[Rfam]
RNA: transfer-messenger RNA
Organism: Verrucomicrobium spinosum
RNA sequence: GGGGGCGUUCUGGUUUCGACGGAUUGCUAGAAGUGGAGGCUGCAUGCCGCGGAUGAUUCGUUGGCCGCGUUACCAAUUCGGAUCAAACAAACUAAAUGCGAACUCUAACGAGCUUGCCCUCGCCGCUUAAUUGACGGUGACGUUCCUCCAGUGAAGUCUGUGAAUUGGAGGGGCGACUACUUACAGGCUGGCCAAAAGAGCGGGCGACCGGCUCCGAGGCGAGAUCUACAGGCCGCUGGGUGGACGGUAUCCUGGCAGUAGGAGACUGGACAUCGAGAUCAAAUUAUUGCCUGAGCAUGGAGACGCUUUCAUGGAAGGUGGUUCGGACAGGGGUUCAACUCCCCUCGCCUCCACCA
Numbered sequence: 001g002g003g004g005g006c007g008u009u010c011u012g013g014u015u016u017c018g019a020c021g022g023a024u025u026g027c028u029a030g031a032a033g034u035g036g037a038g039g040c041u042g043c044a045u046g047c048c049g050c051g052g053a054u055g056a057u058u059c060g061u062u063g064g065c066c067g068c069g070u071u072a073c074c075a076a077u078u079c080g081g082a083u084c085a086a087a088c089a090a091a092c093u094a095a096a097u098g099c100g101a102a103c104u105c106u107a108a109c110g111a112g113c114u115u116g117c118c119c120u121c122g123c124c125g126c127u128u129a130a131u132u133g134a135c136g137g138u139g140a141c142g143u144u145c146c147u148c149c150a151g152u153g154a155a156g157u158c159u160g161u162g163a164a165u166u167g168g169a170g171g172g173g174c175g176a177c178u179a180c181u182u183a184c185a186g187g188c189u190g191g192c193c194a195a196a197a198g199a200g201c202g203g204g205c206g207a208c209c210g211g212c213u214c215c216g217a218g219g220c221g222a223g224a225u226c227u228a229c230a231g232g233c234c235g236c237u238g239g240g241u242g243g244a245c246g247g248u249a250u251c252c253u254g255g256c257a258g259u260a261g262g263a264g265a266c267u268g269g270a271c272a273u274c275g276a277g278a279u280c281a282a283a284u285u286a287u288u289g290c291c292u293g294a295g296c297a298u299g300g301a302g303a304c305g306c307u308u309u310c311a312u313g314g315a316a317g318g319u320g321g322u323u324c325g326g327a328c329a330g331g332g333g334u335u336c337a338a339c340u341c342c343c344c345u346c347g348c349c350u351c352c353a354c355c356a
Stems, first nucleotide, its partner, number of pairs: 001352007020325009033312003037309003041305002043299005048069005055084006114140005120134003141175007149167004155189007191220003203237004208232001239274004250263002254291003259286003329345005
Dot-bracket structure: (((((((............(((((((((....(((.(((.((((((([[[[[..((((((....]]]]].........)))))).............................(((((.(((.........))).)))))(((((((.((((..[[[[[[[..)))).))))))).......]]]]]]].[[[.........((((.(.........]]]...........).)))).[[[[.......[[..(((..(((]].......]]]].........)))..)))...)))))....)).))))))....)))))))))...(((((.......))))))))))))....